This 81-nucleotide sequence from Gopherus evgoodei belongs to the Rfam family "Small nucleolar RNA SNORD60".
RNA sequence: AGCCUGUGAUGAGCUUCCCAUUUGACACCUCCUAUGAGUAUUGCCCAAGCAGUACUUGAUUACGCUUGAUGUCUGAGGCUG
Numbered sequence: 001a002g003c004c005u006g007u008g009a010u011g012a013g014c015u016u017c018c019c020a021u022u023u024g025a026c027a028c029c030u031c032c033u034a035u036g037a038g039u040a041u042u043g044c045c046c047a048a049g050c051a052g053u054a055c056u057u058g059a060u061u062a063c064g065c066u067u068g069a070u071g072u073c074u075g076a077g078g079c080u081g
Stems, first nucleotide, its partner, number of pairs: 001080004040053005

Rfam classes the family as a C/D-box small nucleolar RNA. On this family, see Galardi et al., Mol Cell Biol 2002: "Purified box C/D snoRNPs are able to reproduce site-specific 2'-O-methylation of target RNA in vitro". Rfam links the family to the GO terms nucleolus and RNA processing. Clan: SNORD60 clan.